[Rfam]
RNA sequence: UUUGCCGGAGGUGGGAAAAUUCGUUGCACCCACGCACCCUAUGGGUUAAAGGAGAUGGAGCAGAUUGCGACGGCUUCCCGGCAGA
Numbered sequence: 001u002u003u004g005c006c007g008g009a010g011g012u013g014g015g016a017a018a019a020u021u022c023g024u025u026g027c028a029c030c031c032a033c034g035c036a037c038c039c040u041a042u043g044g045g046u047u048a049a050a051g052g053a054g055a056u057g058g059a060g061c062a063g064a065u066u067g068c069g070a071c072g073g074c075u076u077c078c079c080g081g082c083a084g085a
Base pairs, nucleotide, nucleotide: 001085002084003083004082005081006080007079008078011033012032013031014030015029023071024070025069026068027067035052036046037045038044039043057077058076059075060074061073
Dot-bracket structure: ((((((((..(((((.......[[[[[.))))).(((((...)))).....)....(((((.....]]]]].)))))))))))))
The family of this 85-nucleotide RNA sequence is "skipping-rope RNA". The sequence is in the family's curated seed alignment.